[Rfam]
Description
The record is a 94-nucleotide RNA sequence from Triticum aestivum, which matches "Small nucleolar RNA Z152/R70/R12/" in Rfam. It scores 64 bits against the family's covariance model. The source organism's lineage runs through Eukaryota, Embryophyta, Tracheophyta, Magnoliopsida and Triticum. A reference for the family is Barneche et al. (2001), "Identification of 66 box C/D snoRNAs in Arabidopsis thaliana: extensive gene duplications generated multiple isoforms predicting new ribosomal RNA 2'-O-methylation sites", J Mol Biol. Rfam classes the family as a C/D-box small nucleolar RNA. The base pairs follow the family's consensus structure, which was predicted with PFOLD.
Nucleotides: 094
Stems, first nucleotide, its partner, number of pairs: 001094005
Number, partner (000 for none) and nucleotide at each position: 001094g002093a003092u004091g005090u006000g007000a008000u009000g010000a011000u012000g013000a014000u015000u016000c017000a018000u019000a020000g021000a022000g023000g024000u025000u026000u027000u028000u029000g030000g031000c032000a033000g034000u035000g036000g037000u038000g039000u040000u041000a042000u043000c044000u045000g046000u047000c048000a049000c050000c051000g052000u053000g054000a055000g056000c057000c058000u059000u060000c061000u062000a063000a064000c065000c066000a067000a068000a069000a070000a071000c072000g073000a074000c075000u076000u077000c078000u079000c080000u081000u082000u083000c084000c085000a086000c087000u088000g089000a090005g091004c092003a093002u094001u